Notes
This 98-nucleotide RNA from Actinobacillus delphinicola belongs to the Rfam family "Bacterial small signal recognition particle RNA". Lineage of the source: Bacteria > Pseudomonadati > Pseudomonadota > Pasteurellales > Actinobacillus. The signal recognition particle (SRP) is a universally conserved ribonucleoprotein involved in the co-translational targeting of proteins to membranes. Pairs were carried over by alignment from the consensus structure, which is taken from published work.
RNA sequence: UUCUCGGUCUCUCGCAACAGUCUCUGGUUUACCUGGUCAGGUUCGGAAGAAAGCAGCCAAAGUCAGAUGUCCUGUGUGCCGAGAUAAGCUGGGAAGGU
Numbered sequence: 001u002u003c004u005c006g007g008u009c010u011c012u013c014g015c016a017a018c019a020g021u022c023u024c025u026g027g028u029u030u031a032c033c034u035g036g037u038c039a040g041g042u043u044c045g046g047a048a049g050a051a052a053g054c055a056g057c058c059a060a061a062g063u064c065a066g067a068u069g070u071c072c073u074g075u076g077u078g079c080c081g082a083g084a085u086a087a088g089c090u091g092g093g094a095a096g097g098u
Base pairs, nucleotide, nucleotide: 004092005091006090007089008088010084011083012082013081014080015076017075018074019073020072023067024066025065026064027063028062029061034059035058036057037056042051043050044049